This 83-nucleotide RNA sequence from Bactrocera dorsalis belongs to the Rfam family "mir-11 microRNA precursor family". On this family, see Marco et al., Genome Biol Evol 2010: "Functional shifts in insect microRNA evolution".
RNA sequence: ACUCUUGACGGGAGCUCUGGCUGUGAUUUGCGUUUCACAAUCAAAUUUCAUUUCGCAUCACAGUCUGAGUUCUUGCUGAGCGC
Numbered sequence: 001a002c003u004c005u006u007g008a009c010g011g012g013a014g015c016u017c018u019g020g021c022u023g024u025g026a027u028u029u030g031c032g033u034u035u036c037a038c039a040a041u042c043a044a045a046u047u048u049c050a051u052u053u054c055g056c057a058u059c060a061c062a063g064u065c066u067g068a069g070u071u072c073u074u075g076c077u078g079a080g081c082g083c
Stems, first nucleotide, its partner, number of pairs: 004080003009075009021063006030056003
Pairs were carried over by alignment from the consensus structure, which was predicted with RNAalifold. Rfam 15.1 lists 138 matches to the family in 136 species.